The record is a 121-nucleotide sequence, which matches "DUF3800-I RNA" in Rfam.
Rfam describes the family as follows. Actinobacteria, Firmicutes, Fusobacteria, Proteobacteria (1 example), Tenericutes (2 examples).
The sequence is in the family's curated seed alignment.
[Rfam]
RNA sequence: UAUUUAUACAGGUAGAAAUACACUGUAUACAUUCGAUUACUGAUAUUUUGUAUUAAGCGUAUCUUAAGUACGCCAGCCGAGUGAAAAAGCAGCUUUUUAUAGCUGUUUUUUUUAUGUAUAA
Numbered sequence: 001u002a003u004u005u006a007u008a009c010a011g012g013u014a015g016a017a018a019u020a021c022a023c024u025g026u027a028u029a030c031a032u033u034c035g036a037u038u039a040c041u042g043a044u045a046u047u048u049u050g051u052a053u054u055a056a057g058c059g060u061a062u063c064u065u066a067a068g069u070a071c072g073c074c075a076g077c078c079g080a081g082u083g084a085a086a087a088a089g090c091a092g093c094u095u096u097u098u099a100u101a102g103c104u105g106u107u108u109u110u111u112u113u114a115u116g117u118a119u120a121a
Base pairs, nucleotide, nucleotide: 007027008026009025010024011023012021013020014019030083031082032081033080034079035078040076041075042074043053044052045051057073058072059071060070061069062068084111085110086109087108088107089106090105091104092103093102